Rfam assigns this 199-nucleotide sequence from Clostridium acetireducens to the family "Group II catalytic intron D1-D4-5".
RNA sequence: GAGAACUGAUAAUCCGAUUGGUGGAAUGAAGGAGUAACGCCCUGAAACGCCAUCCCUGAUACUCCGAUGUGCGUAAGACAAAAUCUUACGUUCAAAGCUCGGUGAAGUCGGCUGAAAUCAACCCUAACAGCUUAGUAAUAAGGCUGAGGAAAGCUUCUCAGAGGUGAGAGGUGUUGAUGAUAGGUCGGGGGUCUUUAAA
Numbered sequence: 001g002a003g004a005a006c007u008g009a010u011a012a013u014c015c016g017a018u019u020g021g022u023g024g025a026a027u028g029a030a031g032g033a034g035u036a037a038c039g040c041c042c043u044g045a046a047a048c049g050c051c052a053u054c055c056c057u058g059a060u061a062c063u064c065c066g067a068u069g070u071g072c073g074u075a076a077g078a079c080a081a082a083a084u085c086u087u088a089c090g091u092u093c094a095a096a097g098c099u100c101g102g103u104g105a106a107g108u109c110g111g112c113u114g115a116a117a118u119c120a121a122c123c124c125u126a127a128c129a130g131c132u133u134a135g136u137a138a139u140a141a142g143g144c145u146g147a148g149g150a151a152a153g154c155u156u157c158u159c160a161g162a163g164g165u166g167a168g169a170g171g172u173g174u175u176g177a178u179g180a181u182a183g184g185u186c187g188g189g190g191g192u193c194u195u196u197a198a199a
Base pairs, nucleotide, nucleotide: 019052020051021050022049023048031043032042034040054191055190056189057188064102065101066100067099068094069093071091072090073089074088075087076086077085078084109187110186111185112184113183117178118177119176120175121174122173123149124148125147130144131143132142133141153172154171155170156169157168158167159166160165
For this family Rfam cites "The ins and outs of group II introns" (Bonen and Vogel, Trends Genet, 2001). The organism belongs to Clostridium acetireducens, within Bacteria. The family has 139 seed sequences and 720 matches in Rfam 15.1. Gene Ontology term of the family: Group II intron splicing.